RNA sequence: UUUGCGCCGGCAGGUCUUACACGGCCAGCUCCUGCUGAACUCCCCCAGGAUCGGAAGAUAGCAAGGGUAGGCGGUUGUAGCGGUGCGAUGUAAGUAGCCUGCCUUUUU
Numbered sequence: 001u002u003u004g005c006g007c008c009g010g011c012a013g014g015u016c017u018u019a020c021a022c023g024g025c026c027a028g029c030u031c032c033u034g035c036u037g038a039a040c041u042c043c044c045c046c047a048g049g050a051u052c053g054g055a056a057g058a059u060a061g062c063a064a065g066g067g068u069a070g071g072c073g074g075u076u077g078u079a080g081c082g083g084u085g086c087g088a089u090g091u092a093a094g095u096a097g098c099c100u101g102c103c104u105u106u107u108u
Stems, first nucleotide, its partner, number of pairs: 009103007017093005022087002024084002

The record is a 108-nucleotide RNA sequence from Flavisolibacter ginsenosidimutans, which matches "Bacteroidales small SRP" in Rfam. A search with the family's covariance model found it, with a score of 93 bits. By type it is a non-coding RNA gene. On this family, see Ryan et al., Nat Commun 2020: "A high-resolution transcriptome map identifies small RNA regulation of metabolism in the gut microbe Bacteroides thetaiotaomicron". The family is grouped with related families in Rfam's "SRP clan". The base pairs follow the family's consensus structure, which is taken from published work.